[Rfam]
RNA: sodF sRNA
Organism: Streptomyces harbinensis
RNA sequence: AGCUCCUGCUCGCGUGAUCGUCUUCUCAACCGUUUCACCGGGCAGGUGAAAAAGGAGCGGCCCCCGCGUGUCAAGGACGCGGGGGCCGCUCC
Numbered sequence: 001a002g003c004u005c006c007u008g009c010u011c012g013c014g015u016g017a018u019c020g021u022c023u024u025c026u027c028a029a030c031c032g033u034u035u036c037a038c039c040g041g042g043c044a045g046g047u048g049a050a051a052a053a054g055g056a057g058c059g060g061c062c063c064c065c066g067c068g069u070g071u072c073a074a075g076g077a078c079g080c081g082g083g084g085g086c087c088g089c090u091c092c
Base pairs, nucleotide, nucleotide: 002047005046006045007044008043009042010041011040014038015037016036017035020030021029054092055091056090057089058088059087060086061085062084063083064082065081066080067079068078069077